Annotation
This 96-nucleotide RNA from Pyrococcus horikoshii belongs to the Rfam family "SscA RNA".
RNA sequence: AGGGAAAAUGAGGCUUCCUUCAGUUUGGCGGGUUUCCCGCCGAAGGAAGCCGAGAUCCGAAAGUUUUAAAAGAUCUCCUCAAAAGUAGGGUUAGGC
Numbered sequence: 001a002g003g004g005a006a007a008a009u010g011a012g013g014c015u016u017c018c019u020u021c022a023g024u025u026u027g028g029c030g031g032g033u034u035u036c037c038c039g040c041c042g043a044a045g046g047a048a049g050c051c052g053a054g055a056u057c058c059g060a061a062a063g064u065u066u067u068a069a070a071a072g073a074u075c076u077c078c079u080c081a082a083a084a085g086u087a088g089g090g091u092u093a094g095g096c
Stems, first nucleotide, its partner, number of pairs: 004057001012051010027041006
About the family: The SscA ncRNA gene was identified computationally in AT-rich hyperthermophiles using QRNA. SscA stands for Secondary Structure Conserved A. SscA is 97 nucleotides in length and is of unknown function. This RNA is currently restricted to pyrococcal species.